[Rfam]
RNA sequence: UGCCCCAUGGCUGAGUUGGUCACAGCGUCCGACUGUUAAUGCAGAGCCUCAAGACUCUACCGCAUGACAUCGGAAGGUCGUGAGUUCGAGCCUCACUGGGGCAG
Numbered sequence: 001u002g003c004c005c006c007a008u009g010g011c012u013g014a015g016u017u018g019g020u021c022a023c024a025g026c027g028u029c030c031g032a033c034u035g036u037u038a039a040u041g042c043a044g045a046g047c048c049u050c051a052a053g054a055c056u057c058u059a060c061c062g063c064a065u066g067a068c069a070u071c072g073g074a075a076g077g078u079c080g081u082g083a084g085u086u087c088g089a090g091c092c093u094c095a096c097u098g099g100g101g102c103a104g
Stems, first nucleotide, its partner, number of pairs: 001103007010026004028074005080096005
The record is a 104-nucleotide sequence from Laetiporus sulphureus, which matches "tRNA" in Rfam.
The source organism's lineage runs through Eukaryota, Opisthokonta, Polyporales, Laetiporus and Laetiporus sulphureus.